[Rfam]
The record is a 142-nucleotide RNA sequence from Paenibacillus ginsengarvi, which matches "Group II catalytic intron D1-D4-4" in Rfam. Rfam describes the family as follows. Group II introns are found in rRNA, tRNA and mRNA of organelles in fungi, plants and protists, and also in mRNA in bacteria. The family has 90 seed sequences and 840 matches in Rfam 15.1. A reference for the family is Lehmann and Schmidt (2003), "Group II introns: structure and catalytic versatility of large natural ribozymes", Crit Rev Biochem Mol Biol. It scores 88 bits against the family's covariance model.

RNA sequence: UAGCCGGUGAAAGUCCGGUCGCGGGAGGGGCCAAGCCCCCGUGUAGCUGGGAUGCCUGCGUGUAGCGAAAUCUGUGUGUAGAAGCGCAUCGACAAAAGUCAAGUCAGAGACAGGGCGAGCAACCUGCCAGGCUGUAACAUAA
Numbered sequence: 001u002a003g004c005c006g007g008u009g010a011a012a013g014u015c016c017g018g019u020c021g022c023g024g025g026a027g028g029g030g031c032c033a034a035g036c037c038c039c040c041g042u043g044u045a046g047c048u049g050g051g052a053u054g055c056c057u058g059c060g061u062g063u064a065g066c067g068a069a070a071u072c073u074g075u076g077u078g079u080a081g082a083a084g085c086g087c088a089u090c091g092a093c094a095a096a097a098g099u100c101a102a103g104u105c106a107g108a109g110a111c112a113g114g115g116c117g118a119g120c121a122a123c124c125u126g127c128c129a130g131g132c133u134g135u136a137a138c139a140u141a142a
Stems, first nucleotide, its partner, number of pairs: 020043005051090005056081006065072001098116001100114001103111002119135003